This 102-nucleotide RNA sequence from Caldisalinibacter kiritimatiensis belongs to the Rfam family "Purine riboswitch aptamer".
[Rfam]
RNA sequence: ACAAAAACUUAAUAUGUCGCUCAUAUAAUUCUUGGAAUAUGGCCGAGAAGUUUCUACCAAGUGACCGUAAAUCACUUGACUAUGAGUGGAAGUGUACCUAGG
Numbered sequence: 001a002c003a004a005a006a007a008c009u010u011a012a013u014a015u016g017u018c019g020c021u022c023a024u025a026u027a028a029u030u031c032u033u034g035g036a037a038u039a040u041g042g043c044c045g046a047g048a049a050g051u052u053u054c055u056a057c058c059a060a061g062u063g064a065c066c067g068u069a070a071a072u073c074a075c076u077u078g079a080c081u082a083u084g085a086g087u088g089g090a091a092g093u094g095u096a097c098c099u100a101g102g
Base pairs, nucleotide, nucleotide: 018088019087020086021085022084023083024082025081029049030048031047032046033045034044035043058078059077060076061075062074063073064072
It scores 94 bits against the family's covariance model. The base pairs follow the family's consensus structure, which is taken from published work.